[Rfam]
This 98-nucleotide sequence from Paraburkholderia steynii belongs to the Rfam family "ZMP/ZTP riboswitch aptamer (pfl RNA motif)".
The family's consensus secondary structure is taken from published work.
It scores 57 bits against the family's covariance model.
RNA sequence: GACCGUUCGCGCGACUGGCGCUCAAUCGAGGUGGAUCACCACCGGGGAACGCGAACCGGGAUGCAAAUUCCGUCACGCCGCGCGCCUGGGCCUUGCCU
Numbered sequence: 001g002a003c004c005g006u007u008c009g010c011g012c013g014a015c016u017g018g019c020g021c022u023c024a025a026u027c028g029a030g031g032u033g034g035a036u037c038a039c040c041a042c043c044g045g046g047g048a049a050c051g052c053g054a055a056c057c058g059g060g061a062u063g064c065a066a067a068u069u070c071c072g073u074c075a076c077g078c079c080g081c082g083c084g085c086c087u088g089g090g091c092c093u094u095g096c097c098u
Base pairs, nucleotide, nucleotide: 003058005056006055007054008053009052010051011050015046016045017086018085019084020083021082031042032041033040034039075093077091078090079089